The record is a 154-nucleotide sequence from Aspergillus tanneri, which matches "A. fumigatus sRNA Afu_254" in Rfam.
It is annotated as a small RNA.
For this family Rfam cites "Small ncRNA transcriptome analysis from Aspergillus fumigatus suggests a novel mechanism for regulation of protein synthesis" (Jochl et al., Nucleic Acids Res, 2008).
The family has 6 seed sequences and 185 matches in Rfam 15.1.
The organism belongs to Aspergillus subgen. Circumdati, within Eukaryota.
[Rfam]
RNA sequence: CUACCAACCAUACAUAUACAUAUACAUAUAUAUACUUCGCAAAGAACGCAGUUUCCUCCCCAUCAAUCAUCAUGUCUCCCUGCUCGUGCAACUGCUGCUCCGGCGACUGCAACUCGUGCUCCUGCAGCAGCUGCAAGGUAAGCUCGAAUCCAAA
Numbered sequence: 001c002u003a004c005c006a007a008c009c010a011u012a013c014a015u016a017u018a019c020a021u022a023u024a025c026a027u028a029u030a031u032a033u034a035c036u037u038c039g040c041a042a043a044g045a046a047c048g049c050a051g052u053u054u055c056c057u058c059c060c061c062a063u064c065a066a067u068c069a070u071c072a073u074g075u076c077u078c079c080c081u082g083c084u085c086g087u088g089c090a091a092c093u094g095c096u097g098c099u100c101c102g103g104c105g106a107c108u109g110c111a112a113c114u115c116g117u118g119c120u121c122c123u124g125c126a127g128c129a130g131c132u133g134c135a136a137g138g139u140a141a142g143c144u145c146g147a148a149u150c151c152a153a154a
Base pairs, nucleotide, nucleotide: 081105082104083103084102088098089097090096109134110133111132118125119124